[Rfam]
RNA sequence: AAAAAUUAUAAAGCGCCAGAACUACUGAGUGUAGUUGACGAGGAGGAGUUUUAUCGAGGAUUUCGGCGGAUGACUCCCGGUUACUUAUCAUAACCGAAAGUUCUUAUUAAAACAAAGAGGUGACUCUGUGGACAAAGGUAAGAGCAAUGAUGAGU
Numbered sequence: 001a002a003a004a005a006u007u008a009u010a011a012a013g014c015g016c017c018a019g020a021a022c023u024a025c026u027g028a029g030u031g032u033a034g035u036u037g038a039c040g041a042g043g044a045g046g047a048g049u050u051u052u053a054u055c056g057a058g059g060a061u062u063u064c065g066g067c068g069g070a071u072g073a074c075u076c077c078c079g080g081u082u083a084c085u086u087a088u089c090a091u092a093a094c095c096g097a098a099a100g101u102u103c104u105u106a107u108u109a110a111a112a113c114a115a116a117g118a119g120g121u122g123a124c125u126c127u128g129u130g131g132a133c134a135a136a137g138g139u140a141a142g143a144g145c146a147a148u149g150a151u152g153a154g155u
Base pairs, nucleotide, nucleotide: 020036021035022034023033024032025031045077046076047075048074049073054066055065056064057063078096079095080094081093082092083091100145101144102143103142104141105140106139113130114129116127117126118125119124
Description: Shown here is a 155-nucleotide RNA from Bacillus sp. 165, a member of the family "glmS glucosamine-6-phosphate activated ribozyme aptamer". It is annotated as a riboswitch. The match comes from Rfam's covariance-model search (119 bits).